[Rfam]
RNA sequence: AAAAUCCUUGGAUUUCUGUAUCCGUAUGUCUGAUUGUCAUUUGAACUUCCUAUUCGCCUCGGUUAGUUUCGCCGGGGUUUUU
Numbered sequence: 001a002a003a004a005u006c007c008u009u010g011g012a013u014u015u016c017u018g019u020a021u022c023c024g025u026a027u028g029u030c031u032g033a034u035u036g037u038c039a040u041u042u043g044a045a046c047u048u049c050c051u052a053u054u055c056g057c058c059u060c061g062g063u064u065a066g067u068u069u070c071g072c073c074g075g076g077g078u079u080u081u082u
Stems, first nucleotide, its partner, number of pairs: 056078008
This 82-nucleotide sequence from Atlanticothrix silvestris belongs to the Rfam family "Photosynthesis regulatory RNA1". Formerly known as Syr1 discovered in Synechocystis sp PCC 6803, is a regulatory factor controlling photosynthetic functions. For this family Rfam cites "The small regulatory RNA SyR1/PsrR1 controls photosynthetic functions in cyanobacteria" (Georg et al., Plant Cell, 2014). NCBI's taxonomy places the organism under Bacteria, Bacillati, Cyanophyceae, Nostocales, Atlanticothrix silvestris. The base pairs follow the family's consensus structure, which was predicted with CMfinder. Rfam links the family to the GO terms regulation of translation and regulation of photosynthesis.